[Rfam]
RNA sequence: CUGAUGCUACGCAACUGGCGUAAUGAUGGAUAACCAUCGGGGAGCGUAAGGAAGCGUGCUGGCCGUACGCCUGGGCUGACACG
Numbered sequence: 001c002u003g004a005u006g007c008u009a010c011g012c013a014a015c016u017g018g019c020g021u022a023a024u025g026a027u028g029g030a031u032a033a034c035c036a037u038c039g040g041g042g043a044g045c046g047u048a049a050g051g052a053a054g055c056g057u058g059c060u061g062g063c064c065g066u067a068c069g070c071c072u073g074g075g076c077u078g079a080c081a082c083g
Base pairs, nucleotide, nucleotide: 005051008048009047010046011045012044015041016040017071018070019069020068021067026037027036028035029034060078061077062076063075064074
RNA: ZMP/ZTP riboswitch aptamer (pfl RNA motif)